[Rfam]
RNA sequence: GUGUUAGUUGCGGCUCAUCGUAUGGCAGUUUGCUUGUUGAUGUCGCAAGCUGCCUAGCGAAGGGCAACAAAUGACCG
Number, nucleotide and partner (000 for none) at each position: 001g000002u000003g075004u074005u073006a072007g000008u070009u069010g068011c000012g000013g065014c064015u063016c062017a000018u060019c059020g058021u057022a000023u000024g054025g053026c052027a051028g000029u000030u000031u000032g050033c049034u048035u000036g000037u000038u000039g000040a000041u000042g000043u000044c000045g000046c000047a000048a034049g033050c032051u027052g026053c025054c024055u000056a000057g021058c020059g019060a018061a000062g016063g015064g014065c013066a000067a000068c010069a009070a008071a000072u006073g005074a004075c003076c000077g000
mir-745 microRNA precursor family: a 77-nucleotide sequence from Leptidea sinapis. The family's consensus secondary structure was predicted with RNAalifold.